[Rfam]
RNA sequence: ACAAUUAUACUCCCAAGUAUGGGCCUGUUUAGAUGUGCGAGGGGGUUAGAUGUCCCGUGG
Dot-bracket structure: ...........(((.......))(((..(.......)..)))(((........))))...
Shown here is a 60-nucleotide sequence from Gracilariopsis chorda, a member of the family "pemK RNA". The family's consensus secondary structure is taken from published work. By type it is a cis-regulatory element. Taxonomically the source falls in Gracilariopsis (Eukaryota, Florideophyceae, Gracilariales, Gracilariaceae).